[Rfam]
RNA sequence: AACGGUGAAGCUAGGCCACAGCAGAAGCACUCAUGGCACGCCCUGGUCAGAUGCCAACGAAUCUGUGAAUCCUGCU
Numbered sequence: 001a002a003c004g005g006u007g008a009a010g011c012u013a014g015g016c017c018a019c020a021g022c023a024g025a026a027g028c029a030c031u032c033a034u035g036g037c038a039c040g041c042c043c044u045g046g047u048c049a050g051a052u053g054c055c056a057a058c059g060a061a062u063c064u065g066u067g068a069a070u071c072c073u074g075c076u
Base pairs, nucleotide, nucleotide: 013044014043015042017040020076021075022074023073024072026070027039048065049064050063051062052061054059

Record summary: Rfam assigns this 76-nucleotide sequence from Crocodylus porosus to the family "Mammalian CPEB3 ribozyme". The match comes from Rfam's covariance-model search (40 bits). Lineage of the source: Eukaryota > Vertebrata > Crocodylia > Longirostres > Crocodylus.